Shown here is an 89-nucleotide RNA sequence from Roseivivax jejudonensis, a member of the family "Glycine riboswitch aptamer". Rfam links the family to the GO term glycine biosynthetic process.
[Rfam]
RNA sequence: UCGACCGCGAUGGGAGAACCGGCGCCAGGCCGGUGCCGAAGGAGCAACCGCCCCGGAAACUCUCAGGCCAGACGGACCGUCGCGGUGAC
Numbered sequence: 001u002c003g004a005c006c007g008c009g010a011u012g013g014g015a016g017a018a019c020c021g022g023c024g025c026c027a028g029g030c031c032g033g034u035g036c037c038g039a040a041g042g043a044g045c046a047a048c049c050g051c052c053c054c055g056g057a058a059a060c061u062c063u064c065a066g067g068c069c070a071g072a073c074g075g076a077c078c079g080u081c082g083c084g085g086u087g088a089c
Base pairs, nucleotide, nucleotide: 006084007083008082009081010080011079012078013077019033020032021031022030035068036067037066038064039063042062043061044060048056049055

Annotation: Taxonomically the source falls in Roseivivax (Bacteria, Pseudomonadati, Pseudomonadota, Roseobacteraceae). The base pairs follow the family's consensus structure.